RNA sequence: AAUUUUGUUCAUAAGAACAAAGAGAAGUAAUAUCUACUCUAUACCCAAUGACUAUCACUACACAAUGGGU
Numbered sequence: 001a002a003u004u005u006u007g008u009u010c011a012u013a014a015g016a017a018c019a020a021a022g023a024g025a026a027g028u029a030a031u032a033u034c035u036a037c038u039c040u041a042u043a044c045c046c047a048a049u050g051a052c053u054a055u056c057a058c059u060a061c062a063c064a065a066u067g068g069g070u
Stems, first nucleotide, its partner, number of pairs: 003022002006019005044069003053060002
The record is a 70-nucleotide RNA from Zingiber officinale, which matches "Plastid-clpP 5UTR RNA" in Rfam.
For this family Rfam cites "Retrograde signaling in plants: A critical review focusing on the GUN pathway and beyond" (Richter et al., Plant Commun, 2023).
A search with the family's covariance model found it, with a score of 61 bits.
The base pairs follow the family's consensus structure, which was predicted with LocARNA.
NCBI's taxonomy places the organism under Eukaryota, Viridiplantae, Liliopsida, Zingiberaceae, Zingiber.
Plastid clpP is a non-coding RNA (ncRNA) recognised in plastids. It was found in the prime untranslated region (5UTR) of a protease complex subunit (clpP) in plastids, suggesting a posible cis-regulatory function.